The family of this 56-nucleotide RNA sequence from Pseudorhodoferax sp. Leaf274 is "nhaA-I RNA".
Pairs were carried over by alignment from the consensus structure, which is taken from published work.
Acidobacteria, Alphaproteobacteria, Betaproteobacteria and Gammaproteobacteria, Verrucomicrobia, cand. division NC10.
The source organism's lineage runs through Bacteria, Betaproteobacteria, Burkholderiales, Comamonadaceae and Pseudorhodoferax.
The match comes from Rfam's covariance-model search (45 bits).
RNA sequence: GGGUGCUGCGCCGGAUCUUCGGCCAGCAGGGCACAUGCGUUGGUCGGGCCGCCACG
Numbered sequence: 001g002g003g004u005g006c007u008g009c010g011c012c013g014g015a016u017c018u019u020c021g022g023c024c025a026g027c028a029g030g031g032c033a034c035a036u037g038c039g040u041u042g043g044u045c046g047g048g049c050c051g052c053c054a055c056g
Stems, first nucleotide, its partner, number of pairs: 005027004010023003038056003042053003